Notes: The record is a 150-nucleotide sequence from Actinoplanes digitatis, which matches "c-di-AMP riboswitch aptamer (ydaO/yuaA leader)" in Rfam.
RNA sequence: CGGAGACCGUCGCCUAAUCGCCGCAUGGCGAGCCGGGGAACCAACCGAGUAAUGGGGUGAAUCGGGUCCGAGCCGCAGGCACGGACCUGUAGGGAUCGCUUCCGUCCCGAACCCGUCAGCUAACCCGGUCGGCGGCCGACGGAAGGAAAG
Numbered sequence: 001c002g003g004a005g006a007c008c009g010u011c012g013c014c015u016a017a018u019c020g021c022c023g024c025a026u027g028g029c030g031a032g033c034c035g036g037g038g039a040a041c042c043a044a045c046c047g048a049g050u051a052a053u054g055g056g057g058u059g060a061a062u063c064g065g066g067u068c069c070g071a072g073c074c075g076c077a078g079g080c081a082c083g084g085a086c087c088u089g090u091a092g093g094g095a096u097c098g099c100u101u102c103c104g105u106c107c108c109g110a111a112c113c114c115g116u117c118a119g120c121u122a123a124c125c126c127g128g129u130c131g132g133c134g135g136c137c138g139a140c141g142g143a144a145g146g147a148a149a150g
Stems, first nucleotide, its partner, number of pairs: 011134004018031003032129006042054002055114003063089008092108004